[Rfam]
RNA sequence: UCGUGCUAGACGGGAAGUUAGCGGUGUCCUGUACCUGCAAUCCGCUAUAGCAGGGUUGAAUUCCUCGUUGAGGCUUUAAAAUGGGAGGUCUGGCUUAUAUAAGUGGCGUUGAGAAUUGGGCCCUACGCAAUAGGAACUCAUGAACCCCGUCAGGUCCGGAAGGAAGCAGCGGUAAGUGAGAACUCCUAUGUGCCGUAGGUAAACCUGGUUUGAGUUAACUAUAUAAGUAACGCUUCUGUUUUACUGUCAAUGCGAGGUGCACGA
Number, nucleotide and partner (000 for none) at each position: 001u264002c263003g262004u261005g260006c259007u000008a000009g057010a056011c055012g030013g029014g028015a027016a000017g025018u024019u023020a000021g000022c000023g019024g018025u017026g000027u015028c014029c013030u012031g000032u000033a000034c054035c053036u052037g051038c050039a000040a000041u000042c000043c000044g000045c000046u000047a000048u000049a000050g038051c037052a036053g035054g034055g011056u010057u009058g000059a000060a000061u000062u000063c257064c256065u255066c254067g253068u252069u000070g000071a000072g248073g247074c246075u000076u000077u000078a242079a241080a240081a239082u238083g237084g236085g235086a234087g233088g000089u000090c000091u229092g228093g000094c000095u226096u225097a224098u223099a222100u221101a000102a000103g219104u218105g216106g215107c214108g000109u000110u000111g000112a000113g211114a210115a209116u208117u207118g206119g205120g204121c000122c199123c198124u197125a196126c195127g194128c190129a189130a000131u188132a187133g186134g185135a184136a000137c180138u179139c178140a177141u176142g000143a000144a000145c000146c000147c172148c171149g170150u169151c000152a000153g000154g000155u164156c163157c162158g000159g000160a000161a000162g157163g156164a155165a000166g000167c000168a000169g150170c149171g148172g147173u000174a000175a000176g141177u140178g139179a138180g137181a000182a000183c000184u135185c134186c133187u132188a131189u129190g128191u000192g000193c000194c127195g126196u125197a124198g123199g122200u000201a000202a000203a000204c120205c119206u118207g117208g116209u115210u114211u113212g000213a000214g107215u106216u105217a000218a104219c103220u000221a100222u099223a098224u097225a096226a095227g000228u092229a091230a000231c000232g000233c087234u086235u085236c084237u083238g082239u081240u080241u079242u078243a000244c000245u000246g074247u073248c072249a000250a000251u000252g068253c067254g066255a065256g064257g063258u000259g006260c005261a004262c003263g002264a001
Shown here is a 264-nucleotide RNA sequence from Clostridium novyi, a member of the family "Bacterial large signal recognition particle RNA". The organism belongs to Clostridium novyi, within Bacteria. The signal recognition particle (SRP) is a universally conserved ribonucleoprotein involved in the co-translational targeting of proteins to membranes. The family's RNA type in Rfam is non-coding RNA gene. It scores 228 bits against the family's covariance model. The family is grouped with related families in Rfam's "SRP clan".